[Rfam]
RNA sequence: GGGGAUGUAGAGGUUUUGACAUAAUGUUGAAAGGAAAACAGUUGCAGUGGGGUAUGCCCCUUACAGCUCUAGGUAUAAUAACCGACAAAAAUAACGACGAAGUUUUGGUAGAUCCAAUGUUGAUCGCUAACCAACAAGCAAGUAUCAACUACGCUUUCGCUUAGAACAUACUAAAGCUACACGAAUUGAAUCGCCAUAGUUUGGUUCGUGUCACAGUUUAUGGCUCGGGGUUAACUGGUUCAACUUAAUCCUUAAAUUAUGAACUUAUCGUUUACUUGUUUGUCUUAUGAUCUAAAGUAAGCGAGACAUUAAAACAUAAGACUAAACUGUAGAAGCUGUUUUACCAAUCCUUUAUGGAAACGGGUUCGAUUCCCGUCAUCUCCACCA
Number, nucleotide and partner (000 for none) at each position: 001g383002g382003g381004g380005a379006u378007g377008u000009a000010g000011a000012g000013g000014u000015u000016u000017u000018g000019a000020c356021a355022u354023a353024a352025u000026g350027u000028u000029g000030a000031a000032a000033g344034g000035a342036a341037a340038a339039c338040a337041g336042u335043u334044g330045c329046a328047g327048u326049g070050g069051g068052g067053u066054a000055u077056g076057c000058c000059c073060c072061u000062u000063a000064c000065a000066g053067c052068u051069c050070u049071a000072g060073g059074u000075a000076u056077a055078a000079u000080a000081a000082c000083c000084g000085a000086c000087a000088a000089a000090a000091a000092u000093a000094a000095c000096g000097a000098c000099g000100a000101a000102g000103u000104u000105u000106u000107g000108g000109u000110a000111g000112a000113u000114c000115c000116a000117a000118u000119g000120u000121u000122g000123a000124u000125c000126g000127c000128u000129a000130a000131c000132c000133a000134a000135c000136a000137a000138g000139c000140a000141a000142g000143u000144a000145u000146c000147a000148a000149c000150u000151a000152c000153g177154c176155u175156u174157u173158c000159g171160c000161u000162u000163a000164g000165a000166a000167c000168a000169u000170a000171c159172u000173a157174a156175a155176g154177c153178u000179a211180c210181a209182c208183g207184a206185a000186u204187u203188g202189a201190a000191u000192c000193g224194c223195c222196a221197u220198a219199g000200u000201u189202u188203g187204g186205u000206u184207c183208g182209u181210g180211u179212c000213a000214c000215a000216g000217u000218u000219u198220a197221u196222g195223g194224c193225u000226c000227g252228g251229g250230g249231u248232u247233a246234a245235c000236u000237g000238g264239u263240u262241c261242a260243a000244c000245u234246u233247a232248a231249u230250c229251c228252u227253u000254a000255a000256a000257u000258u000259a000260u242261g241262a240263a239264c238265u000266u000267a000268u304269c303270g302271u301272u300273u000274a000275c000276u297277u296278g000279u000280u000281u290282g322283u321284c320285u319286u000287a317288u316289g315290a281291u000292c000293u000294a000295a000296a277297g276298u000299a000300a272301g271302c270303g269304a268305g000306a000307c000308a000309u000310u000311a000312a000313a000314a000315c289316a288317u287318a000319a285320g284321a283322c282323u000324a000325a000326a048327c047328u046329g045330u044331a000332g000333a000334a043335g042336c041337u040338g039339u038340u037341u036342u035343a000344c033345c000346a000347a000348u000349c000350c026351u000352u024353u023354a022355u021356g020357g000358a000359a000360a376361c375362g374363g373364g372365u000366u000367c000368g000369a000370u000371u000372c364373c363374c362375g361376u360377c007378a006379u005380c004381u003382c002383c001384a000385c000386c000387a000
transfer-messenger RNA: a 387-nucleotide RNA sequence from Mycoplasmoides pneumoniae. Pairs were carried over by alignment from the consensus structure, which is taken from published work. Rfam describes the family as follows. Bacterial tmRNA, also known as 10Sa RNA or SsrA, is named for its dual tRNA and mRNA-like properties. Its role is to liberate the mRNA from a stalled ribosome. For this family Rfam cites "Probing the structure of the Escherichia coli 10Sa RNA (tmRNA)" (Felden et al., RNA, 1997).